[Rfam]
The family of this 60-nucleotide sequence from Microtus ochrogaster is "Ma3 gene ribosomal frameshift signal". On this family, see Wills et al., J Biol Chem 2006: "A functional -1 ribosomal frameshift signal in the human paraneoplastic Ma3 gene". Pairs were carried over by alignment from the consensus structure, which is taken from published work. Taxonomically the source falls in Microtus (Eukaryota, Gnathostomata, Euarchontoglires, Rodentia). The match comes from Rfam's covariance-model search (75 bits).
RNA sequence: GGGAAACGGGGCCUGGGCUUGGGAGAAGAGCCACCCCAAGCCCAAGACCAAGUAGGCUCC
Numbered sequence: 001g002g003g004a005a006a007c008g009g010g011g012c013c014u015g016g017g018c019u020u021g022g023g024a025g026a027a028g029a030g031c032c033a034c035c036c037c038a039a040g041c042c043c044a045a046g047a048c049c050a051a052g053u054a055g056g057c058u059c060c
Stems, first nucleotide, its partner, number of pairs: 014044010028059005
Overview: By type it is a frameshift element.